RNA: pemK RNA
RNA sequence: ACAAUGAUACUUCCCUACGGGGCUGGCGGAGAUACCGGCAGAGGUGAAAGUCCUAUGA
Numbered sequence: 001a002c003a004a005u006g007a008u009a010c011u012u013c014c015c016u017a018c019g020g021g022g023c024u025g026g027c028g029g030a031g032a033u034a035c036c037g038g039c040a041g042a043g044g045u046g047a048a049a050g051u052c053c054u055a056u057g058a
Base pairs, nucleotide, nucleotide: 012055013022014021015020023041024040025039027037028036029035042054043053044052